Selenocysteine transfer RNA: a 90-nucleotide RNA sequence from Oleidesulfovibrio alaskensis. Rfam's curators put it in the seed alignment.

RNA sequence: GGAAGCGUAUCGUCACCGGUGUGGCGCCCGGUCUUCAAAACCGGUGGACGGCUGAGAGGUCGUCGGUAGGUUCGACUCCUAUACGCUUCC
Numbered sequence: 001g002g003a004a005g006c007g008u009a010u011c012g013u014c015a016c017c018g019g020u021g022u023g024g025c026g027c028c029c030g031g032u033c034u035u036c037a038a039a040a041c042c043g044g045u046g047g048a049c050g051g052c053u054g055a056g057a058g059g060u061c062g063u064c065g066g067u068a069g070g071u072u073c074g075a076c077u078c079c080u081a082u083a084c085g086c087u088u089c090c
Base pairs, nucleotide, nucleotide: 001090002089003088004087005086006085007084008083009082011026012025013024014023015022016021028044029043030042031041032040047064048063049062050061051060067081068080069079070078